Notes
UnaL2 LINE 3' element: a 54-nucleotide RNA sequence from Megalops atlanticus. Gene Ontology term of the family: transposition, RNA-mediated. The base pairs follow the family's consensus structure, which is taken from published work. The literature on the family includes a 2004 paper in RNA by Baba et al., "Solution structure of an RNA stem-loop derived from the 3' conserved region of eel LINE UnaL2".
RNA sequence: AAAACGAACUAAUGUAAGUCACUCUGGAUAAGAGGGUCUGCUAAAUGCCAAUAA
Numbered sequence: 001a002a003a004a005c006g007a008a009c010u011a012a013u014g015u016a017a018g019u020c021a022c023u024c025u026g027g028a029u030a031a032g033a034g035g036g037u038c039u040g041c042u043a044a045a046u047g048c049c050a051a052u053a054a
Stems, first nucleotide, its partner, number of pairs: 013043001014041003020036001022034004